[Rfam]
RNA sequence: GGUGGGGAAGAUUAAAAACAACAAAUUUUGAUUCUGAGGAUGUAUAUGCAGGACCAAAGUUAAGGAAUUCUUCGUUUAUGACCCGCU
Numbered sequence: 001g002g003u004g005g006g007g008a009a010g011a012u013u014a015a016a017a018a019c020a021a022c023a024a025a026u027u028u029u030g031a032u033u034c035u036g037a038g039g040a041u042g043u044a045u046a047u048g049c050a051g052g053a054c055c056a057a058a059g060u061u062a063a064g065g066a067a068u069u070c071u072u073c074g075u076u077u078a079u080g081a082c083c084c085g086c087u
Base pairs, nucleotide, nucleotide: 001087002086003085004084
Overview:
The family of this 87-nucleotide sequence from Wickerhamiella sorbophila is "Small nucleolar RNA snR57". The match comes from Rfam's covariance-model search (62 bits). The family's RNA type in Rfam is C/D-box small nucleolar RNA.